[Rfam]
Nucleotides: 078
Stems, first nucleotide, its partner, number of pairs: 007072002010069016028052005
Number, partner (000 for none) and nucleotide at each position: 001000a002000c003000g004000g005000u006000g007072g008071u009000a010069a011068c012067g013066u014065a015064c016063u017062u018061c019060u020059u021058u022057g023056c024055a025054u026000c027000g028052c029051c030050a031049u032048a033000c034000g035000g036000a037000a038000u039000a040000u041000u042000g043000u044000a045000a046000a047000c048032u049031a050030u051029g052028g053000a054025a055024u056023g057022u058021a059020a060019a061018g062017a063016a064015g065014u066013a067012u068011g069010u070000a071008a072007c073000c074000c075000c076000u077000g078000a

Annotation
This 78-nucleotide sequence from Onchocerca volvulus belongs to the Rfam family "mir-1 microRNA precursor family". Rfam links the family to the GO terms RISC complex and miRNA-mediated post-transcriptional gene silencing. The match comes from Rfam's covariance-model search (70 bits). Rfam's curators write: This family represents the microRNA (miRNA) mir-1 family. miRNAs are transcribed as ~70nt precursors (modelled here) and subsequently processed by the Dicer enzyme to give a ~22nt product. The literature on the family includes a 2001 paper in Science by Lee and Ambros, "An extensive class of small RNAs in Caenorhabditis elegans". The organism belongs to Onchocerca, within Eukaryota.